The record is a 113-nucleotide sequence from Azotobacter chroococcum, which matches "Pseudomon-groES RNA" in Rfam. A search with the family's covariance model found it, with a score of 89 bits. Taxonomically the source falls in Azotobacter chroococcum (Bacteria, Pseudomonadati, Pseudomonadota, Pseudomonadaceae).

RNA sequence: CUAGCGGACACCGCAAGGUUCCUGUCGGACGACAGGCUAUCUUCCGCGGUCCCGCGUUGCGGGCCGCAACCGGCAGUGCCGGCUUUUACUAAUGGGCCGAUGAAGGCAUCGGU
Numbered sequence: 001c002u003a004g005c006g007g008a009c010a011c012c013g014c015a016a017g018g019u020u021c022c023u024g025u026c027g028g029a030c031g032a033c034a035g036g037c038u039a040u041c042u043u044c045c046g047c048g049g050u051c052c053c054g055c056g057u058u059g060c061g062g063g064c065c066g067c068a069a070c071c072g073g074c075a076g077u078g079c080c081g082g083c084u085u086u087u088a089c090u091a092a093u094g095g096g097c098c099g100a101u102g103a104a105g106g107c108a109u110c111g112g113u
Stems, first nucleotide, its partner, number of pairs: 010019003021036006046067005052062003070082004096113006